RNA sequence: ACCGUCAGCAGCUUGAUCCAGAUGCCGAUCAGCGGCAGGUUCAGGAUCACCAGCAUCAGGUUGCCGACCCACAUCGACGCGAUCAGGCCCCAGAACAGCUGCGGGUCGCUGGCCAUCACCUGCGGGCC
Numbered sequence: 001a002c003c004g005u006c007a008g009c010a011g012c013u014u015g016a017u018c019c020a021g022a023u024g025c026c027g028a029u030c031a032g033c034g035g036c037a038g039g040u041u042c043a044g045g046a047u048c049a050c051c052a053g054c055a056u057c058a059g060g061u062u063g064c065c066g067a068c069c070c071a072c073a074u075c076g077a078c079g080c081g082a083u084c085a086g087g088c089c090c091c092a093g094a095a096c097a098g099c100u101g102c103g104g105g106u107c108g109c110u111g112g113c114c115a116u117c118a119c120c121u122g123c124g125g126g127c128c
Stems, first nucleotide, its partner, number of pairs: 004017005027127001029125002033122003038114003045107004051101004056097001061093003066088001068086001073083003